[Rfam]
RNA: Small nucleolar RNA ACA64
RNA sequence: GUUUGUUGAAAAUCACCCCCGGCUUUGGCCGUAGUCGCGGGUGAGAUUCGGCGCCCAGAACGUCCAGGGUCCUCAGCUCACCGCCCACUGCCGGUGUGGGUGGGUGAAACCCAGGCCCCGACAUCC
Numbered sequence: 001g002u003u004u005g006u007u008g009a010a011a012a013u014c015a016c017c018c019c020c021g022g023c024u025u026u027g028g029c030c031g032u033a034g035u036c037g038c039g040g041g042u043g044a045g046a047u048u049c050g051g052c053g054c055c056c057a058g059a060a061c062g063u064c065c066a067g068g069g070u071c072c073u074c075a076g077c078u079c080a081c082c083g084c085c086c087a088c089u090g091c092c093g094g095u096g097u098g099g100g101u102g103g104g105u106g107a108a109a110c111c112c113a114g115g116c117c118c119c120g121a122c123a124u125c126c
Base pairs, nucleotide, nucleotide: 005052006051007050008049009048010047013044014043015042016041021036022035023034024033067119069117071115072114073113078107079106080105081104082103086098087097088096